[Rfam]
RNA: tRNA
RNA sequence: GCACCCUUAGCUCAAUUGGAUAGAGUACUUGACUACGAAUCAAGCGGUUGCAGGUUCGACUCCUGCAGGGUGUG
Numbered sequence: 001g002c003a004c005c006c007u008u009a010g011c012u013c014a015a016u017u018g019g020a021u022a023g024a025g026u027a028c029u030u031g032a033c034u035a036c037g038a039a040u041c042a043a044g045c046g047g048u049u050g051c052a053g054g055u056u057c058g059a060c061u062c063c064u065g066c067a068g069g070g071u072g073u074g
Base pairs, nucleotide, nucleotide: 001073002072003071004070005069006068007067010026011025012024013023028044029043030042031041032040050066051065052064053063054062